[Rfam]
RNA: Small nucleolar RNA R160
Organism: Carnegiea gigantea
RNA sequence: AGCGGGAUGAUGAAAACAAUGAAUUGGAGCUGAAUUUCUUCGAUGUAGAAUUCAAUCUUCCAAUAUCGCCUUCAAAGUUCUCUGAUCGCU
Dot-bracket structure: (((((................................................................................)))))